[Rfam]
RNA sequence: GGAUUAAAAGGUGAUGAAGUUCACCAUGGUAUAUGCCUAAAUGCUCAUGAGCUGAUGACUUCUGCAAAUAA
Numbered sequence: 001g002g003a004u005u006a007a008a009a010g011g012u013g014a015u016g017a018a019g020u021u022c023a024c025c026a027u028g029g030u031a032u033a034u035g036c037c038u039a040a041a042u043g044c045u046c047a048u049g050a051g052c053u054g055a056u057g058a059c060u061u062c063u064g065c066a067a068a069u070a071a
Stems, first nucleotide, its partner, number of pairs: 010025004016062006043052003